[Rfam]
A member of the RNA family "Bacterial large signal recognition particle RNA" from Pristimantibacillus lignocellulolyticus, 268 nucleotides long. About the family: The signal recognition particle (SRP) is a universally conserved ribonucleoprotein involved in the co-translational targeting of proteins to membranes. A search with the family's covariance model found it, with a score of 196 bits. Gene Ontology terms of the family: signal recognition particle, plasma membrane targeting and SRP-dependent cotranslational protein targeting to membrane, signal sequence recognition. The family's consensus secondary structure is taken from published work. Its Rfam clan is "SRP clan". Rfam classes the family as a non-coding RNA gene.

RNA sequence: CCGUGCUAGAUGGGGAGGUAGCGGUGCCCUGUAACUCGCAAUCCGCUAUAGCGAGGUUGAAUUCCUAUUCUAGGUGUUGUCGAUGUGAGGUCUGACGCUUGCAAGUAGUGUUGACAGUGGGGUCCUUCGCAAUGGACGCUUAUGAACCUGGUCAGGUCCGGAAGGAAGCAGCCAUAAGUAAGUUAGUUCAUGUGCCGAGGGAGUGCCUUGCUCGAGCUAUGUAGUAAGAAAGUCGCUUGGAUCGCUUCUAUCGAAGAUAGGUGCACGG
Numbered sequence: 001c002c003g004u005g006c007u008a009g010a011u012g013g014g015g016a017g018g019u020a021g022c023g024g025u026g027c028c029c030u031g032u033a034a035c036u037c038g039c040a041a042u043c044c045g046c047u048a049u050a051g052c053g054a055g056g057u058u059g060a061a062u063u064c065c066u067a068u069u070c071u072a073g074g075u076g077u078u079g080u081c082g083a084u085g086u087g088a089g090g091u092c093u094g095a096c097g098c099u100u101g102c103a104a105g106u107a108g109u110g111u112u113g114a115c116a117g118u119g120g121g122g123u124c125c126u127u128c129g130c131a132a133u134g135g136a137c138g139c140u141u142a143u144g145a146a147c148c149u150g151g152u153c154a155g156g157u158c159c160g161g162a163a164g165g166a167a168g169c170a171g172c173c174a175u176a177a178g179u180a181a182g183u184u185a186g187u188u189c190a191u192g193u194g195c196c197g198a199g200g201g202a203g204u205g206c207c208u209u210g211c212u213c214g215a216g217c218u219a220u221g222u223a224g225u226a227a228g229a230a231a232g233u234c235g236c237u238u239g240g241a242u243c244g245c246u247u248c249u250a251u252c253g254a255a256g257a258u259a260g261g262u263g264c265a266c267g268g
Stems, first nucleotide, its partner, number of pairs: 001268006009058003012030004017025001019023001035055005064261006073252004081244004086239004093235002098228005105222002107218003116212008124201006130192002133190005138183006149174004157166003